[Rfam]
RNA sequence: CUCUAGGGAUGAGUUCUGUUGUCCCGCUUCGUGGUAACACGAAGGCAAUAAACUGGGUGAAUUGCAAGGACGGCUAAGGCUUCACAAACAAGCUAUGCUAACUUGCAGCGAAGCUCGUUGAAAACACAUGUGUAAAAUCACAAAAGUAAACGAGAACGUUCAACGACUAGAGAGUGCGGAUGUGUUAACCAAUAAUCUCUCCACGAGUGCCCAGCAACUUUUCCAAGAAUUCGUAUGAAAUUUAUGUUUCCAACCUUACAUACACAAGCUUUUUCCAAGCAAGAAAUAGAUUCUUUAUGUGAAGGAUUGCGAGAAAAGUGGCAUCUUCAAUGUUGGACAAAACCCGACAAAAAGUAUCAUUGUCUAGCAAUUUCUGGAAAAAGUUAUGAAACUUUGAUGGAGUUAAUUGAUCCAUAUAUUAUCCCAUCAAUGAGACAUAAUUACAAACUCCGCGACGAAAAAGUUGAUGACAUAGUCUGACCUCCUGGGAAACCUGGAG
Numbered sequence: 001c002u003c004u005a006g007g008g009a010u011g012a013g014u015u016c017u018g019u020u021g022u023c024c025c026g027c028u029u030c031g032u033g034g035u036a037a038c039a040c041g042a043a044g045g046c047a048a049u050a051a052a053c054u055g056g057g058u059g060a061a062u063u064g065c066a067a068g069g070a071c072g073g074c075u076a077a078g079g080c081u082u083c084a085c086a087a088a089c090a091a092g093c094u095a096u097g098c099u100a101a102c103u104u105g106c107a108g109c110g111a112a113g114c115u116c117g118u119u120g121a122a123a124a125c126a127c128a129u130g131u132g133u134a135a136a137a138u139c140a141c142a143a144a145a146g147u148a149a150a151c152g153a154g155a156a157c158g159u160u161c162a163a164c165g166a167c168u169a170g171a172g173a174g175u176g177c178g179g180a181u182g183u184g185u186u187a188a189c190c191a192a193u194a195a196u197c198u199c200u201c202c203a204c205g206a207g208u209g210c211c212c213a214g215c216a217a218c219u220u221u222u223c224c225a226a227g228a229a230u231u232c233g234u235a236u237g238a239a240a241u242u243u244a245u246g247u248u249u250c251c252a253a254c255c256u257u258a259c260a261u262a263c264a265c266a267a268g269c270u271u272u273u274u275c276c277a278a279g280c281a282a283g284a285a286a287u288a289g290a291u292u293c294u295u296u297a298u299g300u301g302a303a304g305g306a307u308u309g310c311g312a313g314a315a316a317a318g319u320g321g322c323a324u325c326u327u328c329a330a331u332g333u334u335g336g337a338c339a340a341a342a343c344c345c346g347a348c349a350a351a352a353a354g355u356a357u358c359a360u361u362g363u364c365u366a367g368c369a370a371u372u373u374c375u376g377g378a379a380a381a382a383g384u385u386a387u388g389a390a391a392c393u394u395u396g397a398u399g400g401a402g403u404u405a406a407u408u409g410a411u412c413c414a415u416a417u418a419u420u421a422u423c424c425c426a427u428c429a430a431u432g433a434g435a436c437a438u439a440a441u442u443a444c445a446a447a448c449u450c451c452g453c454g455a456c457g458a459a460a461a462a463g464u465u466g467a468u469g470a471c472a473u474a475g476u477c478u479g480a481c482c483u484c485c486u487g488g489g490a491a492a493c494c495u496g497g498a499g
Base pairs, nucleotide, nucleotide: 006025007024008023009022010021011020012019030041031040032039053214054213055212056211058209059208063107064106065105066104067103068102073098074097077094108159109158115152118145163478165477166476167475168474169473217464218463219462220461221460222459224457484497485496487494488493
Group I catalytic intron: a 499-nucleotide sequence from Closterium sp. NIES-68.
The literature on the family includes a 1990 paper in Annu Rev Biochem by Cech, "Self-splicing of group I introns".
Group I catalytic introns are large self-splicing ribozymes. They catalyse their own excision from mRNA, tRNA and rRNA precursors in a wide range of organisms. The core secondary structure consists of 9 paired regions (P1-P9). These fold to essentially two domains - the P4-P6 domain (formed from the stacking of P5, P4, P6 and P6a helices) and the P3-P9 domain (formed from the P8, P3, P7 and P9 helices). The secondary structure mark-up for this family represents only this conserved core. Group I catalytic introns often have long ORFs inserted in loop regions. The window size for this search is chosen to minimise search time and catch the small examples. A larger window size will find more matches.
NCBI's taxonomy places the organism under Eukaryota, Streptophyta, Closteriaceae, Closterium, Closterium peracerosum-strigosum-littorale complex.